[Rfam]
RNA sequence: AUCGUUCAUCUCUCCAAUUAAUCCGACUUUGACAACCGGGAUGGACCUCUUACAGGUGGGAGAGACGGAAGUAAGGAUAAUCCUGAAGGAACGCGCC
Numbered sequence: 001a002u003c004g005u006u007c008a009u010c011u012c013u014c015c016a017a018u019u020a021a022u023c024c025g026a027c028u029u030u031g032a033c034a035a036c037c038g039g040g041a042u043g044g045a046c047c048u049c050u051u052a053c054a055g056g057u058g059g060g061a062g063a064g065a066c067g068g069a070a071g072u073a074a075g076g077a078u079a080a081u082c083c084u085g086a087a088g089g090a091a092c093g094c095g096c097c
Stems, first nucleotide, its partner, number of pairs: 003093005009065007068094001074084003
Glutamine riboswitch aptamer (glnA leader): a 97-nucleotide RNA from Cyanothece sp. PCC 7425. NCBI's taxonomy places the organism under Bacteria, Bacillati, Cyanobacteriota, Gomontiellales, Cyanothece.